[Rfam]
RNA sequence: UGGCCAUAGAAUAACUUAUUCUAUGGUCACUUUGAGUUACAAUAGUUAAUAUGCUAAUUUACAAGACUACAGUAACUACUUACUAGGUGAUUUACUAUAACAUUAUGGUAAAUAUCACCGUGAGUUAUAGUAAUACGAGUAUCGUAAAUAUAUAUUCAUGUUAUCGUAAAUUGGUAUAAACAUUAUCGUAAAUUAAGGUGGCUAUAAAAUAAGUUAUUCUAUAGCAU
Numbered sequence: 001u002g003g004c005c006a007u008a009g010a011a012u013a014a015c016u017u018a019u020u021c022u023a024u025g026g027u028c029a030c031u032u033u034g035a036g037u038u039a040c041a042a043u044a045g046u047u048a049a050u051a052u053g054c055u056a057a058u059u060u061a062c063a064a065g066a067c068u069a070c071a072g073u074a075a076c077u078a079c080u081u082a083c084u085a086g087g088u089g090a091u092u093u094a095c096u097a098u099a100a101c102a103u104u105a106u107g108g109u110a111a112a113u114a115u116c117a118c119c120g121u122g123a124g125u126u127a128u129a130g131u132a133a134u135a136c137g138a139g140u141a142u143c144g145u146a147a148a149u150a151u152a153u154a155u156u157c158a159u160g161u162u163a164u165c166g167u168a169a170a171u172u173g174g175u176a177u178a179a180a181c182a183u184u185a186u187c188g189u190a191a192a193u194u195a196a197g198g199u200g201g202c203u204a205u206a207a208a209a210u211a212a213g214u215u216a217u218u219c220u221a222u223a224g225c226a227u
Stems, first nucleotide, its partner, number of pairs: 003225002006222015022206012037191004042186005050178013065165002069161003072157001074155001080147004087142003091138002093132009103122001108116001
Rfam assigns this 227-nucleotide RNA from Miscanthus lutarioriparius to the family "MIR6217 microRNA precursor family". The base pairs follow the family's consensus structure, which was predicted with RNAalifold. The family has 2 seed sequences and 2,266 matches in Rfam 15.1. Its family is annotated with RISC complex and miRNA-mediated post-transcriptional gene silencing in the Gene Ontology. The organism belongs to Miscanthus, within Eukaryota. It scores 155 bits against the family's covariance model.